[Rfam]
RNA sequence: GUUAGUGUGAUGAUUUAAUUGUCGGAUACCCCUUCACUCUGUCUGUGAGUGAUAACUUUAAUCUGACUAAC
Numbered sequence: 001g002u003u004a005g006u007g008u009g010a011u012g013a014u015u016u017a018a019u020u021g022u023c024g025g026a027u028a029c030c031c032c033u034u035c036a037c038u039c040u041g042u043c044u045g046u047g048a049g050u051g052a053u054a055a056c057u058u059u060a061a062u063c064u065g066a067c068u069a070a071c
Base pairs, nucleotide, nucleotide: 001071002070003069004068005067
Record summary
The record is a 71-nucleotide sequence from Hymenochirus boettgeri, which matches "Small nucleolar RNA SNORD101" in Rfam. The match comes from Rfam's covariance-model search (74 bits). NCBI's taxonomy places the organism under Eukaryota, Teleostomi, Batrachia, Pipoidea, Hymenochirus. The family's consensus secondary structure was predicted with PFOLD. Its Rfam clan is "SNORD101 clan". A reference for the family is Vitali et al. (2003), "Identification of 13 novel human modification guide RNAs", Nucleic Acids Res. Its family is annotated with nucleolus and RNA processing in the Gene Ontology.